[Rfam]
RNA sequence: AAUGAGUGAUGACAAAAUGUUUCGGUCCCAUAUGAUGUCCAAUGAUAAAACUGUAAACAUUUUUCUGAUGUU
Numbered sequence: 001a002a003u004g005a006g007u008g009a010u011g012a013c014a015a016a017a018u019g020u021u022u023c024g025g026u027c028c029c030a031u032a033u034g035a036u037g038u039c040c041a042a043u044g045a046u047a048a049a050a051c052u053g054u055a056a057a058c059a060u061u062u063u064u065c066u067g068a069u070g071u072u
Stems, first nucleotide, its partner, number of pairs: 001072004